About this RNA: The family of this 437-nucleotide part of an RNA from Candidatus Micrarchaeum acidiphilum is "Archaeal large subunit ribosomal RNA". The family's consensus secondary structure is taken from published work. The sequence is in the family's curated seed alignment. The source organism's lineage runs through Archaea, Nanobdellati, Candidatus Micrarchaeia, Candidatus Micrarchaeum and Candidatus Micrarchaeum acidiphilum. Its family is annotated with structural constituent of ribosome and ribosome in the Gene Ontology.
RNA sequence: CCUUCUGAAGUAUCUUUAGGAUAGCUCUGGGCGAGCUUGCAUAUGCGGUAGAGCAACCGAUUAAGGGGCAUGGAGCCGAAAGGCUUCACCUCUUCGUCAAACUCCGAAUGUAUAUGCUGUGUAGACCCCAGGAGUCGGCGAUGUUGGGUAAGCUAGCAUCGCGAGACUGCAAAGAUAGUGACCGGGGUUAAGGUCCCCAAAUCCUAGUUGAGUGUAUCAAAGGCGAGAAGUACCAUAGACAGCUGGGAGGUAGGCUCAGAAGCAGCCAUCCUUCAAAAAACGCGUAAUAGCGUACCAGUAGAGGUAUUCCUUACCGAAAAUAUACGGGGCUAAGCUAGGUACCGAGACCUCGGAGUGCGAUAAGCACUGGUAAGAAGGCGUGCGGCAUGGCAAGAAGUAUGUCCGAAAGGACAUAUGGACCGUGUCGCAGAGAAUAU
Numbered sequence: 001c002c003u004u005c006u007g008a009a010g011u012a013u014c015u016u017u018a019g020g021a022u023a024g025c026u027c028u029g030g031g032c033g034a035g036c037u038u039g040c041a042u043a044u045g046c047g048g049u050a051g052a053g054c055a056a057c058c059g060a061u062u063a064a065g066g067g068g069c070a071u072g073g074a075g076c077c078g079a080a081a082g083g084c085u086u087c088a089c090c091u092c093u094u095c096g097u098c099a100a101a102c103u104c105c106g107a108a109u110g111u112a113u114a115u116g117c118u119g120u121g122u123a124g125a126c127c128c129c130a131g132g133a134g135u136c137g138g139c140g141a142u143g144u145u146g147g148g149u150a151a152g153c154u155a156g157c158a159u160c161g162c163g164a165g166a167c168u169g170c171a172a173a174g175a176u177a178g179u180g181a182c183c184g185g186g187g188u189u190a191a192g193g194u195c196c197c198c199a200a201a202u203c204c205u206a207g208u209u210g211a212g213u214g215u216a217u218c219a220a221a222g223g224c225g226a227g228a229a230g231u232a233c234c235a236u237a238g239a240c241a242g243c244u245g246g247g248a249g250g251u252a253g254g255c256u257c258a259g260a261a262g263c264a265g266c267c268a269u270c271c272u273u274c275a276a277a278a279a280a281c282g283c284g285u286a287a288u289a290g291c292g293u294a295c296c297a298g299u300a301g302a303g304g305u306a307u308u309c310c311u312u313a314c315c316g317a318a319a320a321u322a323u324a325c326g327g328g329g330c331u332a333a334g335c336u337a338g339g340u341a342c343c344g345a346g347a348c349c350u351c352g353g354a355g356u357g358c359g360a361u362a363a364g365c366a367c368u369g370g371u372a373a374g375a376a377g378g379c380g381u382g383c384g385g386c387a388u389g390g391c392a393a394g395a396a397g398u399a400u401g402u403c404c405g406a407a408a409g410g411a412c413a414u415a416u417g418g419a420c421c422g423u424g425u426c427g428c429a430g431a432g433a434a435u436a437u
Stems, first nucleotide, its partner, number of pairs: 001378006011023005025134001026132006035120002039117008051105001052103002059098003063094006072087006138162009167178003182353007192343003201340001203339006222315002225312003229308006242299005248272003253267003273277001278293001282291002354368005379432001381429010397416008
The literature on the family includes a 2001 paper in Science by Yusupov et al., "Crystal structure of the ribosome at 5.5 A resolution".